[Rfam]
The family of this 121-nucleotide sequence from Devosia sp. Root436 is "Rhizobiales sRNA Atu_C8".
RNA sequence: GAAGAUUGAAAAAGGCUUCGUUGUAGUAGGUGGGCGCAUGGGCAUGGCAGCAUAGCUGUCAGGCGAAAGCACCCAUGCGCGGUAAAUUCAGCCCCCAAGCGGGGCUUUUUUAUUGCCCGUC
Numbered sequence: 001g002a003a004g005a006u007u008g009a010a011a012a013a014g015g016c017u018u019c020g021u022u023g024u025a026g027u028a029g030g031u032g033g034g035c036g037c038a039u040g041g042g043c044a045u046g047g048c049a050g051c052a053u054a055g056c057u058g059u060c061a062g063g064c065g066a067a068a069g070c071a072c073c074c075a076u077g078c079g080c081g082g083u084a085a086a087u088u089c090a091g092c093c094c095c096c097a098a099g100c101g102g103g104g105c106u107u108u109u110u111u112a113u114u115g116c117c118c119g120u121c
Stems, first nucleotide, its partner, number of pairs: 007028001029117004034080009045061006063070002086107001090106002093104004
It scores 82 bits against the family's covariance model.